[Rfam]
RNA sequence: CUCCGUAGCCCUCCUUGGGCGUUUCCUCCCUUGACUUGGGCCGCUGGUCUUCCGGCGGCCCCUUUUUCUUCCCGCC
Numbered sequence: 001c002u003c004c005g006u007a008g009c010c011c012u013c014c015u016u017g018g019g020c021g022u023u024u025c026c027u028c029c030c031u032u033g034a035c036u037u038g039g040g041c042c043g044c045u046g047g048u049c050u051u052c053c054g055g056c057g058g059c060c061c062c063u064u065u066u067u068c069u070u071c072c073c074g075c076c
Stems, first nucleotide, its partner, number of pairs: 008020004038061009
RNA: Makes More Granules Regulator RNA (mmgR)